[Rfam]
RNA sequence: GGAGACGGAUGGAGUCCUGGUGGAUCCCGCGGCCUUCAAAGCCGUUGCGAGGUACGCAGAAUGCCUUGGGUGUGUUCGAUUCGCACACGUCUCC
Numbered sequence: 001g002g003a004g005a006c007g008g009a010u011g012g013a014g015u016c017c018u019g020g021u022g023g024a025u026c027c028c029g030c031g032g033c034c035u036u037c038a039a040a041g042c043c044g045u046u047g048c049g050a051g052g053u054a055c056g057c058a059g060a061a062u063g064c065c066u067u068g069g070g071u072g073u074g075u076u077c078g079a080u081u082c083g084c085a086c087a088c089g090u091c092u093c094c
Base pairs, nucleotide, nucleotide: 001094002093003092004091005090006089007088008086011027012026013025015024016023017022029045030044031043032042033041048068049067050066051065052064071085072084073083074082